[Rfam]
RNA sequence: UUACUCUGGUUUCUCUUCAAUUGUCGAAUAAAUCUUUCGCCUUUUACUAAAGAUUUCCGUGGAGAGGAACACUCUAAUGAGUCUAAAAUAAUUUUUUGUAGUGCCCGGUGACUUCGGUUGC
Numbered sequence: 001u002u003a004c005u006c007u008g009g010u011u012u013c014u015c016u017u018c019a020a021u022u023g024u025c026g027a028a029u030a031a032a033u034c035u036u037u038c039g040c041c042u043u044u045u046a047c048u049a050a051a052g053a054u055u056u057c058c059g060u061g062g063a064g065a066g067g068a069a070c071a072c073u074c075u076a077a078u079g080a081g082u083c084u085a086a087a088a089u090a091a092u093u094u095u096u097u098g099u100a101g102u103g104c105c106c107g108g109u110g111a112c113u114u115c116g117g118u119u120g121c
Base pairs, nucleotide, nucleotide: 003082004081005080006079009070010069011068012067013066014065015064016063017062018061019060030056031055032054033053034052035051036050037049102120103119105117106116107115
RNA: U5 spliceosomal RNA